Notes:
A member of the RNA family "mir-1 microRNA precursor family" from Eleutherodactylus coqui, 115 nucleotides long. Gene Ontology terms of the family: miRNA-mediated post-transcriptional gene silencing and RISC complex.
RNA sequence: UUAAAAAAGACAAACUUCUUUAUUGCUCCAUGUUAAAAGCAGAACAGGCAACGUUUCGACAAUCAAGUCUUUGUCAGGCUUGACAUGGAGCAAUAAAGAAGUUUGUCUUUUUUAA
Number, nucleotide and partner (000 for none) at each position: 001u000002u000003a000004a000005a000006a000007a109008a108009g107010a106011c105012a104013a103014a102015c101016u100017u099018c098019u097020u096021u095022a094023u093024u092025g091026c000027u000028c088029c087030a086031u085032g084033u083034u082035a081036a080037a000038a000039g000040c000041a000042g000043a000044a000045c000046a000047g000048g000049c000050a000051a000052c000053g000054u000055u000056u000057c000058g000059a000060c000061a000062a000063u000064c000065a000066a000067g000068u000069c000070u000071u000072u000073g000074u000075c000076a000077g000078g000079c000080u036081u035082g034083a033084c032085a031086u030087g029088g028089a000090g000091c025092a024093a023094u022095a021096a020097a019098g018099a017100a016101g015102u014103u013104u012105g011106u010107c009108u008109u007110u000111u000112u000113u000114a000115a000

Record summary: About the family: This family represents the microRNA (miRNA) mir-1 family. miRNAs are transcribed as ~70nt precursors (modelled here) and subsequently processed by the Dicer enzyme to give a ~22nt product. In this case the mature sequence comes from the 3' arm of the precursor. The extents of the hairpin precursors are not generally known and are estimated based on hairpin prediction. The products are thought to have regulatory roles through complementarity to mRNA. The involvement of Dicer in miRNA processing suggests a relationship with the phenomenon of RNA interference. miRNAs are numbered based on the sequence of the mature RNA. This family also contains the mir-206 from human, which appears to be related to mir-1. A reference for the family is Lee and Ambros (2001), "An extensive class of small RNAs in Caenorhabditis elegans", Science.